The family of this 271-nucleotide RNA from Firmicutes bacterium CAG:424 is "HNH endonuclease-associated RNA and ORF (HEARO) RNA".
The organism belongs to Bacillota, within Bacteria.
RNA sequence: GUCAAUAACCACCGUCCAAAUGAGCGUUGCUCACUUGGGCGAGGCUUGUAAUCGAAACAGCUCCUGUAGCUGGGGACGUUACAAAACCGAUUGAUUAGCCGCUGUCAGAUGCCUUCGGGCAUUUGGCAGAGCCGUUAUCCUGGAAAACAUAGGUACCAGUGGAUGCUCCACAAGUCCACUGCUCUACGGCUGCGGAUUAAACAUCUCUGAGGGAAAGGAGAAGUGUCCGCAGCAGAUACAACCCAGGAAUAACAGCGGCGAUGUGGACCAC
Numbered sequence: 001g002u003c004a005a006u007a008a009c010c011a012c013c014g015u016c017c018a019a020a021u022g023a024g025c026g027u028u029g030c031u032c033a034c035u036u037g038g039g040c041g042a043g044g045c046u047u048g049u050a051a052u053c054g055a056a057a058c059a060g061c062u063c064c065u066g067u068a069g070c071u072g073g074g075g076a077c078g079u080u081a082c083a084a085a086a087c088c089g090a091u092u093g094a095u096u097a098g099c100c101g102c103u104g105u106c107a108g109a110u111g112c113c114u115u116c117g118g119g120c121a122u123u124u125g126g127c128a129g130a131g132c133c134g135u136u137a138u139c140c141u142g143g144a145a146a147a148c149a150u151a152g153g154u155a156c157c158a159g160u161g162g163a164u165g166c167u168c169c170a171c172a173a174g175u176c177c178a179c180u181g182c183u184c185u186a187c188g189g190c191u192g193c194g195g196a197u198u199a200a201a202c203a204u205c206u207c208u209g210a211g212g213g214a215a216a217g218g219a220g221a222a223g224u225g226u227c228c229g230c231a232g233c234a235g236a237u238a239c240a241a242c243c244c245a246g247g248a249a250u251a252a253c254a255g256c257g258g259c260g261a262u263g264u265g266g267a268c269c270a271c
Base pairs, nucleotide, nucleotide: 001095002094003093004092005091006090010029011028012026017022098259099258100257101256102255103128104127105126106125107124108123109122110121111120112119134253135252136251137250138249140247141246143244153187154186157181158180159179160178161177162176163175164174165269167267168266169265170264171263172262189233190232191231192230193229194228195227196226197225201224202223204221205220206219207218208217